[Rfam]
RNA sequence: UAGGUCGACGCGGGAGAGCCUGGCGCAAUUCGUGCCGGGCACCGAAGGAGCAAUUCUCUCCGAUAAACUCUCAGGUUCGUGUACCGCGUUGAACUG
Dot-bracket structure: .....((((((((.....((((((((.....)))))))).(((((..(((...((......))....))))).))).......)))))))).....